[Rfam]
RNA sequence: ACGGAAGCCCGGCGAGGCCUAGGUCGAUCCGGAAGAGAAGGGUCGAUCUCCCGACCCGGGCACCCAGCACGGUCCCCGGUACCCACGCGGAGUCAUAGCCGCGAUAUGGCAGAAGUGUUGCGGGCCUGCGUAAUUGCGAAAAGCGGACGGCGCCGACGGCCCUUUGGGUGGGGUCGCAACCGGAAGCAUCGCAAGAUCGCCGAGGCCACCCACGCAGCCCAAGAAGUGCACGCAUGGUAACCGGGUUCCGUGUUAGCGGGCGGCGGGCCGAACAUCUCGGAACGCCGCCCGCUUUACCUU
Numbered sequence: 001a002c003g004g005a006a007g008c009c010c011g012g013c014g015a016g017g018c019c020u021a022g023g024u025c026g027a028u029c030c031g032g033a034a035g036a037g038a039a040g041g042g043u044c045g046a047u048c049u050c051c052c053g054a055c056c057c058g059g060g061c062a063c064c065c066a067g068c069a070c071g072g073u074c075c076c077c078g079g080u081a082c083c084c085a086c087g088c089g090g091a092g093u094c095a096u097a098g099c100c101g102c103g104a105u106a107u108g109g110c111a112g113a114a115g116u117g118u119u120g121c122g123g124g125c126c127u128g129c130g131u132a133a134u135u136g137c138g139a140a141a142a143g144c145g146g147a148c149g150g151c152g153c154c155g156a157c158g159g160c161c162c163u164u165u166g167g168g169u170g171g172g173g174u175c176g177c178a179a180c181c182g183g184a185a186g187c188a189u190c191g192c193a194a195g196a197u198c199g200c201c202g203a204g205g206c207c208a209c210c211c212a213c214g215c216a217g218c219c220c221a222a223g224a225a226g227u228g229c230a231c232g233c234a235u236g237g238u239a240a241c242c243g244g245g246u247u248c249c250g251u252g253u254u255a256g257c258g259g260g261c262g263g264c265g266g267g268c269c270g271a272a273c274a275u276c277u278c279g280g281a282a283c284g285c286c287g288c289c290c291g292c293u294u295u296a297c298c299u300u
Stems, first nucleotide, its partner, number of pairs: 003064002007061006016052002021049002025045006066254007076244005083237003087233003092229002098110003117218006123207005128200003134194006143187002148182003157176007256292010268280003
Dot-bracket structure: ..((..((((((...((...((..((((((.........))))))..)).))...)))))).)).(((((((...(((((..(((.(((..((....(((.......)))......((((((((((((((...((((((...((...(((......(((((((......)))))))...)))...)).))))))...)))..))))).....)))))).........)).))).)))..)))))...))))))).((((((((((..(((.......)))..))))))))))........